RNA sequence: UGAGUAAGUCAGCCUAAUCCAGAUUUUUAAACCUGGAGCGGAGGAACCACAUUUUGGGGCGUAUUUUUGCCUUUUUUAGUCAAAAUUUGGCAGAAAAGGACAUCUCUCAGUCCUAGCCCGUCAGCUAACUUCGUAGGCAUUGAGAGGAGACUGA
Number, nucleotide and partner (000 for none) at each position: 001u000002g000003a000004g000005u000006a000007a000008g000009u000010c000011a000012g138013c137014c136015u000016a000017a000018u037019c036020c035021a034022g033023a000024u000025u000026u000027u000028u000029a000030a000031a000032c000033c022034u021035g020036g019037a018038g134039c133040g132041g131042a130043g129044g000045a000046a000047c000048c056049a055050c000051a000052u000053u000054u000055u049056g048057g119058g118059g117060c000061g000062u000063a000064u000065u095066u094067u093068u092069g091070c090071c089072u000073u000074u000075u000076u000077u000078a000079g000080u000081c000082a000083a000084a000085a000086u000087u000088u000089g071090g070091c069092a068093g067094a066095a065096a000097a000098g113099g112100a111101c110102a000103u000104c000105u000106c000107u000108c000109a000110g101111u100112c099113c098114u000115a000116g000117c059118c058119c057120g000121u000122c000123a000124g000125c000126u000127a000128a000129c043130u042131u041132c040133g039134u038135a000136g014137g013138c012139a000140u000141u000142g000143a000144g000145a000146g000147g000148a000149g000150a000151c000152u000153g000154a000

A member of the RNA family "c-di-AMP riboswitch aptamer (ydaO/yuaA leader)" from Aerosakkonema funiforme, 154 nucleotides long. A search with the family's covariance model found it, with a score of 80 bits. Its family is annotated with regulation of gene expression and cyclic-di-AMP binding in the Gene Ontology.